[Rfam]
RNA: mir-135 microRNA precursor family
Organism: Dromaius novaehollandiae
RNA sequence: GGCCUGCCGUCUUGUAUGGCUUUUUAUUCCUAUGUGAUUAUACGUCAUGCACUUCAUAUAGGGAUUGAAGCCGUGCAGUACGCCGGGGC
Numbered sequence: 001g002g003c004c005u006g007c008c009g010u011c012u013u014g015u016a017u018g019g020c021u022u023u024u025u026a027u028u029c030c031u032a033u034g035u036g037a038u039u040a041u042a043c044g045u046c047a048u049g050c051a052c053u054u055c056a057u058a059u060a061g062g063g064a065u066u067g068a069a070g071c072c073g074u075g076c077a078g079u080a081c082g083c084c085g086g087g088g089c
Stems, first nucleotide, its partner, number of pairs: 003087004008082003012078012026065012